[Rfam]
The record is a 365-nucleotide RNA from Vitreoscilla sp. C1, which matches "transfer-messenger RNA" in Rfam.
The base pairs follow the family's consensus structure, which is taken from published work.
The literature on the family includes a 1996 paper in RNA by Williams and Bartel, "Phylogenetic analysis of tmRNA secondary structure".
The source organism's lineage runs through Bacteria, Pseudomonadati, Pseudomonadota, Betaproteobacteria and Vitreoscilla.
The family's RNA type in Rfam is non-coding RNA gene.
RNA sequence: GGGGGCGAUCUUGGUUUCGACGGGGAUUGCAAAGCGGAUGCGGGCAUACCGAGAUCUCAGAAUCUCGUAAAACACUGAAAAAUAUAUAAUCGCAAACGACGAUUCUUACGCUUUAGCCGCUUAAGGCUUAGCCGUUGCAAUGGUUGGUCAAUGGACCAUGAGGGGUUAAACCCUCCGCAACGUCAUUCACAUUGACUGGUUGGUGCUUGGGUUACUUAAGCAUUGAUGAGACUUAAGGUGACUGGUUCAAUCUCAGCCUGUCCGUCGGCGGAGCUUGAAUGAGAUUUUAAGUAGACAAGACUAAGUAUGUAGAACGCUUCGUAGAGGGUUUUCGGACGGGGGUUCAAUUCCCCCCGCCUCCACCA
Number, nucleotide and partner (000 for none) at each position: 001g361002g360003g359004g358005g357006c356007g355008a000009u000010c000011u000012u000013g000014g000015u000016u000017u000018c000019g000020a000021c334022g333023g332024g331025g330026a329027u328028u327029g000030c000031a000032a000033a000034g322035c321036g320037g319038a318039u000040g317041c316042g315043g000044g000045c309046a308047u307048a306049c305050c067051g066052a065053g064054a063055u080056c000057u078058c077059a076060g075061a000062a000063u054064c053065u052066c051067g050068u000069a000070a000071a000072a000073c000074a000075c060076u059077g058078a057079a000080a055081a000082a000083u000084a000085u000086a000087u000088a000089a000090u000091c000092g000093c000094a000095a000096a000097c000098g000099a000100c000101g000102a000103u000104u000105c000106u000107u000108a000109c000110g000111c000112u000113u131114u130115a129116g127117c126118c125119g000120c000121u000122u000123a000124a000125g118126g117127c116128u000129u115130a114131g113132c000133c182134g181135u180136u179137g178138c177139a000140a000141u158142g157143g156144u155145u000146g000147g196148u195149c194150a193151a192152u191153g190154g000155a144156c143157c142158a141159u000160g000161a000162g000163g000164g000165g000166u000167u000168a000169a000170a000171c000172c000173c000174u000175c000176c000177g138178c137179a136180a135181c134182g133183u000184c000185a000186u000187u000188c000189a000190c153191a152192u151193u150194g149195a148196c147197u000198g000199g227200u226201u225202g224203g223204u222205g221206c220207u219208u000209g000210g243211g242212u241213u240214a239215c238216u000217u000218a000219a207220g206221c205222a204223u203224u202225g201226a200227u199228g000229a000230g000231a000232c000233u000234u000235a000236a000237g000238g215239u214240g213241a212242c211243u210244g000245g280246u279247u278248c277249a276250a275251u000252c273253u272254c271255a000256g269257c268258c267259u000260g301261u300262c299263c000264g296265u295266c294267g258268g257269c256270g000271g254272a253273g252274c000275u250276u249277g248278a247279a246280u245281g000282a000283g000284a000285u000286u000287u000288u000289a000290a000291g000292u000293a000294g266295a265296c264297a000298a000299g262300a261301c260302u000303a000304a000305g049306u048307a047308u046309g045310u000311a000312g000313a000314a000315c042316g041317c040318u038319u037320c036321g035322u034323a000324g000325a000326g000327g028328g027329u026330u025331u024332u023333c022334g021335g000336a000337c000338g354339g353340g352341g351342g350343u000344u000345c000346a000347a000348u000349u000350c342351c341352c340353c339354c338355c007356g006357c005358c004359u003360c002361c001362a000363c000364c000365a000